[Rfam]
The family of this 87-nucleotide RNA sequence from Zizania palustris is "mir-156 microRNA precursor family".

RNA sequence: GUGACAGAAGAGAGUGAGCACAUGUGGUUGUUUCAUUGCAUGAUGCUCAUGCUUGGAGCUACAUGUGCUCACUUCUCUUGCUGUCAC
Numbered sequence: 001g002u003g004a005c006a007g008a009a010g011a012g013a014g015u016g017a018g019c020a021c022a023u024g025u026g027g028u029u030g031u032u033u034c035a036u037u038g039c040a041u042g043a044u045g046c047u048c049a050u051g052c053u054u055g056g057a058g059c060u061a062c063a064u065g066u067g068c069u070c071a072c073u074u075c076u077c078u079u080g081c082u083g084u085c086a087c
Base pairs, nucleotide, nucleotide: 001087002086003085004084005083006082007081009079010077011076012075013073014072015071016070017069018068019067020066021065023063024062025061
The source organism's lineage runs through Eukaryota, Tracheophyta, Spermatophyta, Petrosaviidae and Zizania. A search with the family's covariance model found it, with a score of 80 bits. This family represents the plant microRNA (miRNA) precursor mir-156. The base pairs follow the family's consensus structure, which was predicted with PFOLD.